[Rfam]
RNA: STnc250 Hfq binding RNA
Organism: Salmonella enterica
RNA sequence: GAAGUCAUGCUUCGUAAAUAAAUGCCUGGAAAGCACCGCGCUCCCAUAGAGGAUAAGAAAAGGCGACUCAACGAAAGUCGCCUUUUUUGUGCCC
Numbered sequence: 001g002a003a004g005u006c007a008u009g010c011u012u013c014g015u016a017a018a019u020a021a022a023u024g025c026c027u028g029g030a031a032a033g034c035a036c037c038g039c040g041c042u043c044c045c046a047u048a049g050a051g052g053a054u055a056a057g058a059a060a061a062g063g064c065g066a067c068u069c070a071a072c073g074a075a076a077g078u079c080g081c082c083u084u085u086u087u088u089g090u091g092c093c094c
Base pairs, nucleotide, nucleotide: 001013002012003011004010023035024034025033042053043052044051056088057087058086059085060084061083062082063081064080065079066078067077068076